A member of the RNA family "R2 RNA element" from Agrilus planipennis, 200 nucleotides long. Pairs were carried over by alignment from the consensus structure, which is taken from published work. From the family's description: This family represents the 3' UTR region of the R2 retrotransposable element. A search with the family's covariance model found it, with a score of 46 bits. Rfam links the family to the GO term regulation of reverse transcription. The source organism's lineage runs through Eukaryota, Bilateria, Protostomia, Polyphaga and Agrilus.

[Rfam]
RNA sequence: AUUUCAUUAACUCGCUCUUUAGAAGCUUCUUUGGUUUGGACUCUAAUUCUCGGCUAAAGAGGGCCCUAGUUGGUUCUAGAACGGCCUGAGGUAGAGGGGUUUUAGUCGGUAGGUCCGAGGACUUGUUCCUCGAGAAUCCGACACUACCCAGUCGUACGGACGGCUGGGUGUCUUUUGAAGAUUUCCCCUCUUCCACGAAA
Number, nucleotide and partner (000 for none) at each position: 001a000002u000003u000004u000005c000006a000007u000008u000009a000010a000011c000012u000013c000014g000015c000016u000017c000018u000019u000020u000021a000022g000023a000024a000025g000026c000027u000028u000029c000030u000031u000032u000033g000034g000035u000036u000037u000038g000039g000040a000041c000042u000043c000044u000045a000046a000047u000048u000049c000050u000051c000052g000053g000054c000055u000056a000057a000058a000059g000060a000061g000062g000063g000064c000065c000066c000067u000068a000069g000070u199071u198072g000073g196074u195075u000076c000077u000078a000079g000080a000081a000082c000083g000084g000085c000086c000087u000088g000089a000090g194091g193092u000093a191094g190095a000096g187097g186098g185099g000100u000101u000102u000103u000104a000105g142106u141107c140108g139109g138110u000111a000112g000113g000114u134115c000116c132117g131118a130119g129120g128121a127122c000123u000124u000125g000126u000127u121128c120129c119130u118131c117132g116133a000134g114135a000136a000137u000138c109139c108140g107141a106142c105143a000144c170145u000146a169147c168148c167149c166150a165151g000152u000153c000154g000155u000156a000157c000158g000159g000160a000161c000162g000163g000164c000165u150166g149167g148168g147169u146170g144171u000172c000173u000174u000175u000176u000177g000178a000179a000180g000181a000182u000183u000184u000185c098186c097187c096188c000189u000190c094191u093192u000193c091194c090195a074196c073197g000198a071199a070200a000